[Rfam]
RNA sequence: UGUCUCUGACCUGGGUAGAGUGACAUCUGGCUGUGGCAUUCAUCUCAUAUCAGCCAGGGACAAAACAAUCCCAUGUUUAUCUCGGCUUGGCCUUUGGUCUGUGCUCAUGGCUGGUUCAUGCCUUGGACACAUCG
Numbered sequence: 001u002g003u004c005u006c007u008g009a010c011c012u013g014g015g016u017a018g019a020g021u022g023a024c025a026u027c028u029g030g031c032u033g034u035g036g037c038a039u040u041c042a043u044c045u046c047a048u049a050u051c052a053g054c055c056a057g058g059g060a061c062a063a064a065a066c067a068a069u070c071c072c073a074u075g076u077u078u079a080u081c082u083c084g085g086c087u088u089g090g091c092c093u094u095u096g097g098u099c100u101g102u103g104c105u106c107a108u109g110g111c112u113g114g115u116u117c118a119u120g121c122c123u124u125g126g127a128c129a130c131a132u133c134g
Base pairs, nucleotide, nucleotide: 001062002061003060004059005058006057007056008055011053012052013051014050018046019045020044022040023039026036027035074129075128076127077126078125079124089122090121091120095118096117097116099114100113101112104109
Notes:
This 134-nucleotide RNA sequence from Piliocolobus tephrosceles belongs to the Rfam family "Small nucleolar RNA SNORA48". Its Rfam clan is "SNORA48 clan". Rfam links the family to the GO terms nucleolus and RNA processing. Rfam describes the family as follows. The snoRNA ACA 48 has been identified to guide pseudouridylation of the residue U3797 in the 28S rRNA subunit. Lineage of the source: Eukaryota > Eumetazoa > Tetrapoda > Euarchontoglires > Piliocolobus. It is annotated as an H/ACA-box small nucleolar RNA. A search with the family's covariance model found it, with a score of 132 bits. The family's consensus secondary structure was predicted with RNAalifold. Rfam 15.1 lists 2,109 matches to the family in 150 species.